[Rfam]
RNA: Fluoride riboswitch aptamer (crcB RNA motif)
RNA sequence: UGCGCCGCAGGAGAUGGCGUUCCUCCUUUAACCACCGUGCGAUCCGCAUGGUUGAUGACGCCUACAGCCGC
Numbered sequence: 001u002g003c004g005c006c007g008c009a010g011g012a013g014a015u016g017g018c019g020u021u022c023c024u025c026c027u028u029u030a031a032c033c034a035c036c037g038u039g040c041g042a043u044c045c046g047c048a049u050g051g052u053u054g055a056u057g058a059c060g061c062c063u064a065c066a067g068c069c070g071c
Stems, first nucleotide, its partner, number of pairs: 010026004016062006034052008